[Rfam]
RNA sequence: UACAUUCUUCGGGGCAGGGUGGAAUUCCCUACCGGCGGUGUUGAAGGUAUAUAAAAGUAUCUUCUAAGUCCGUGACCCGUUAACAAAUGUUAACGGUGGAUCUAGUGAGAGUCUAGGGCCGACAGUUACAGUCUGGAUGGGAGAAGAAUUGC
Numbered sequence: 001u002a003c004a005u006u007c008u009u010c011g012g013g014g015c016a017g018g019g020u021g022g023a024a025u026u027c028c029c030u031a032c033c034g035g036c037g038g039u040g041u042u043g044a045a046g047g048u049a050u051a052u053a054a055a056a057g058u059a060u061c062u063u064c065u066a067a068g069u070c071c072g073u074g075a076c077c078c079g080u081u082a083a084c085a086a087a088u089g090u091u092a093a094c095g096g097u098g099g100a101u102c103u104a105g106u107g108a109g110a111g112u113c114u115a116g117g118g119c120c121g122a123c124a125g126u127u128a129c130a131g132u133c134u135g136g137a138u139g140g141g142a143g144a145a146g147a148a149u150u151g152c
Stems, first nucleotide, its partner, number of pairs: 004149007017029003031132002033121002035073004068119002077096002101117005123135003
Shown here is a 152-nucleotide RNA sequence, a member of the family "FMN riboswitch aptamer (RFN element)". A search with the family's covariance model found it, with a score of 113 bits. From the family's description: The RFN element is a highly conserved domain that is found frequently in the 5'-untranslated regions of prokaryotic mRNAs that encode for flavin mononucleotide (FMN) biosynthesis and transport proteins.